RNA sequence: AAUGGAUAAAGGCAUACCUAUGGAAACAUAGGGACGCAAAGCCAUGGCCUAAAGCAUCAGACGAUGCUACGGUUGACAGGUUGCUGGA
Numbered sequence: 001a002a003u004g005g006a007u008a009a010a011g012g013c014a015u016a017c018c019u020a021u022g023g024a025a026a027c028a029u030a031g032g033g034a035c036g037c038a039a040a041g042c043c044a045u046g047g048c049c050u051a052a053a054g055c056a057u058c059a060g061a062c063g064a065u066g067c068u069a070c071g072g073u074u075g076a077c078a079g080g081u082u083g084c085u086g087g088a
Stems, first nucleotide, its partner, number of pairs: 012037002017032006040082004045078002047073003054067004
Rfam assigns this 88-nucleotide RNA sequence from Paenibacillus sp. Leaf72 to the family "c-di-GMP-I riboswitch aptamer". It scores 72 bits against the family's covariance model. Lineage of the source: Bacteria > Bacillota > Bacilli > Caryophanales > Paenibacillus. Gene Ontology term of the family: cyclic-di-GMP binding. The family's consensus secondary structure is taken from published work. A reference for the family is Sudarsan et al. (2008), "Riboswitches in Eubacteria Sense the Second Messenger Cyclic Di-GMP", Science.